[Rfam]
Nucleotides: 110
Stems, first nucleotide, its partner, number of pairs: 001024006041074003046066006078100008
Number, partner (000 for none) and nucleotide at each position: 001024u002023g003022a004021c005020c006019c007000u008000u009000c010000u011000u012000a013000a014000g015000c016000c017000g018000a019006g020005g021004g022003u023002c024001a025000c026000c027000u028000a029000g030000c031000c032000a033000a034000c035000u036000g037000a038000c039000g040000u041074u042073g043072u044000u045000a046066g047065u048064g049063a050062a051061c052000c053000u054000a055000a056000u057000u058000u059000u060000u061051g062050u063049u064048c065047a066046c067000g068000a069000u070000u071000u072043a073042u074041a075000u076000a077000g078100c079099c080098a081097a082096c083095c084094g085093c086000g087000a088000c089000u090000c091000u092000u093085g094084c095083g096082g097081u098080u099079g100078g101000c102000u103000u104000u105000u106000u107000u108000c109000u110000u